[Rfam]
RNA sequence: GCCCCCGUAGCUCAGAGGAUAGAGCAGCAGCCUUCUAAUCUGACGGUCGUAGGUUCGAGUCCUACCGGGGGCG
Numbered sequence: 001g002c003c004c005c006c007g008u009a010g011c012u013c014a015g016a017g018g019a020u021a022g023a024g025c026a027g028c029a030g031c032c033u034u035c036u037a038a039u040c041u042g043a044c045g046g047u048c049g050u051a052g053g054u055u056c057g058a059g060u061c062c063u064a065c066c067g068g069g070g071g072c073g
Stems, first nucleotide, its partner, number of pairs: 001072007010025004028042003049065005

tRNA: a 73-nucleotide RNA sequence from Friedmanniella luteola. The source organism's lineage runs through Bacteria, Bacillati, Actinomycetes, Nocardioidaceae and Friedmanniella. A search with the family's covariance model found it, with a score of 62 bits. Pairs were carried over by alignment from the consensus structure, which is taken from published work.